[Rfam]
RNA sequence: AAAGUUAUAAAAGCGCCAGAACUAACCUGGACGAAGAAGGGGUUAGUUGACGAGGUGGAGGUUUAUCGAAUGUUUCGGCGGAUGCCUCCCGGCCGCAGCGCACGGCCGAAAAUUGCUCCUUAAAUCAUUGAGGCGACUCAAUGGACAAAGGGACGCAAGCUGCGCACU
Numbered sequence: 001a002a003a004g005u006u007a008u009a010a011a012a013g014c015g016c017c018a019g020a021a022c023u024a025a026c027c028u029g030g031a032c033g034a035a036g037a038a039g040g041g042g043u044u045a046g047u048u049g050a051c052g053a054g055g056u057g058g059a060g061g062u063u064u065a066u067c068g069a070a071u072g073u074u075u076c077g078g079c080g081g082a083u084g085c086c087u088c089c090c091g092g093c094c095g096c097a098g099c100g101c102a103c104g105g106c107c108g109a110a111a112a113u114u115g116c117u118c119c120u121u122a123a124a125u126c127a128u129u130g131a132g133g134c135g136a137c138u139c140a141a142u143g144g145a146c147a148a149a150g151g152g153a154c155g156c157a158a159g160c161u162g163c164g165c166a167c168u
Base pairs, nucleotide, nucleotide: 020048021047022046023045024044025043026042027041057089058088059087060086061085066078067077068076069075090108091107092106093105094104095103113158114157115156116155119152126143127142128141129140130139131138132137